RNA sequence: AUGAACACAGGUGAUGGAGUUCACCUUUAACCGCCUGUUUUCCAAGGCUAAUAACUCCUGUACAUUU
Numbered sequence: 001a002u003g004a005a006c007a008c009a010g011g012u013g014a015u016g017g018a019g020u021u022c023a024c025c026u027u028u029a030a031c032c033g034c035c036u037g038u039u040u041u042c043c044a045a046g047g048c049u050a051a052u053a054a055c056u057c058c059u060g061u062a063c064a065u066u067u
Stems, first nucleotide, its partner, number of pairs: 010025004016058006033048004